[Rfam]
RNA sequence: CACCAUACAAUGCGUUUCUCAAAGACAGCAGGCGCCGCAAGGCUCAAAUCAUCGGCCUGCCGAGGGUAACGGUUUUGUAUGCAUUCGCGCAUCCGCGCGUUUUGCAUCGGACUUUUUGCCCCCGGCAUGCUGUGCCGGGGGUUUUCCAUUGCCACC
Numbered sequence: 001c002a003c004c005a006u007a008c009a010a011u012g013c014g015u016u017u018c019u020c021a022a023a024g025a026c027a028g029c030a031g032g033c034g035c036c037g038c039a040a041g042g043c044u045c046a047a048a049u050c051a052u053c054g055g056c057c058u059g060c061c062g063a064g065g066g067u068a069a070c071g072g073u074u075u076u077g078u079a080u081g082c083a084u085u086c087g088c089g090c091a092u093c094c095g096c097g098c099g100u101u102u103u104g105c106a107u108c109g110g111a112c113u114u115u116u117u118g119c120c121c122c123c124g125g126c127a128u129g130c131u132g133u134g135c136c137g138g139g140g141g142u143u144u145u146c147c148a149u150u151g152c153c154a155c156c
Stems, first nucleotide, its partner, number of pairs: 028060006034043003119141010
The record is a 156-nucleotide RNA sequence from Ethanoligenens harbinense, which matches "Ribosomal protein L10 leader" in Rfam. About the family: This family is a putative r-protein leader autoregulatory structure found in B. subtilis and other low-GC Gram-positive bacteria. It is located in the 5' untranslated regions of mRNAs encoding ribosomal proteins L10 and L12 (rplJ-rplL). A Rho-independent transcription terminator structure that is probably involved in regulation is included at the 3' end. The organism belongs to Ethanoligenens harbinense, within Bacteria. Pairs were carried over by alignment from the consensus structure, which was predicted with CMfinder.